The record is a 132-nucleotide sequence from Otolemur garnettii, which matches "U11 spliceosomal RNA" in Rfam. Rfam 15.1 lists 2,595 matches to the family in 1,202 species. The family is grouped with related families in Rfam's "U1 clan". The organism belongs to Otolemur, within Eukaryota. It scores 61 bits against the family's covariance model. The base pairs follow the family's consensus structure, which is taken from published work.
RNA sequence: AAAAAGACCUUCUGUCAUGGGGCACAUGGAGAGCUACCUGACUGCCCUUUAUGUUGAAGGGACAUGGAGAGAUUUUGGAAGCAUAAUUUUUUGGUAGUUGGACAGCUAGUGAUUGUUGGACCUGGUGCCCUU
Dot-bracket structure: ........((((((((....))))(((((((.((.........)).)))))))(.(((..............))).)))))..................((.(.(((((.(.((...)).))))))).))..